[Rfam]
RNA sequence: ACACGUUGGCCCUAAGAAGGGCGCAGUUCGAUCUCAAGCAGGCAACGGGGUUUGAG
Numbered sequence: 001a002c003a004c005g006u007u008g009g010c011c012c013u014a015a016g017a018a019g020g021g022c023g024c025a026g027u028u029c030g031a032u033c034u035c036a037a038g039c040a041g042g043c044a045a046c047g048g049g050g051u052u053u054g055a056g
Stems, first nucleotide, its partner, number of pairs: 004047005010021004033056007
Annotation: Shown here is a 56-nucleotide RNA sequence from Synechococcus sp. MIT S9508, a member of the family "Glutamine-II riboswitch aptamer". On this family, see Huang et al., Nucleic Acids Res 2019: "Structure and ligand binding of the glutamine-II riboswitch". The family's consensus secondary structure is taken from published work.